[Rfam]
RNA: NiCo (Nickel/Cobalt) riboswitch aptamer
RNA sequence: ACAGUACAAACUGAGCAGGCGGUGGGAUGACCACAGGGCCGGGCCACACAGGGUGGCAGCAGAUAAAGAAUGAAUUUAUGAUCUGCGGGACAGUA
Numbered sequence: 001a002c003a004g005u006a007c008a009a010a011c012u013g014a015g016c017a018g019g020c021g022g023u024g025g026g027a028u029g030a031c032c033a034c035a036g037g038g039c040c041g042g043g044c045c046a047c048a049c050a051g052g053g054u055g056g057c058a059g060c061a062g063a064u065a066a067a068g069a070a071u072g073a074a075u076u077u078a079u080g081a082u083c084u085g086c087g088g089g090a091c092a093g094u095a
Stems, first nucleotide, its partner, number of pairs: 010094004016089001018040003022034004043057005059086006